[Rfam]
RNA sequence: GACGGGUUGCCCGAGUGGUUAGGGAGCCGCCUGCAAAGCGGCGAACGUCGGUUCGAAUCCGGCACCCGUCU
Numbered sequence: 001g002a003c004g005g006g007u008u009g010c011c012c013g014a015g016u017g018g019u020u021a022g023g024g025a026g027c028c029g030c031c032u033g034c035a036a037a038g039c040g041g042c043g044a045a046c047g048u049c050g051g052u053u054c055g056a057a058u059c060c061g062g063c064a065c066c067c068g069u070c071u
Base pairs, nucleotide, nucleotide: 001070002069003068004067005066006065007064010024011023012022026042027041028040029039030038047063048062049061050060051059
The family of this 71-nucleotide sequence from Pilimelia anulata is "tRNA".
The base pairs follow the family's consensus structure, which is taken from published work.
It is annotated as a transfer RNA.
The source organism's lineage runs through Bacteria, Actinomycetota, Actinomycetes, Micromonosporales and Pilimelia.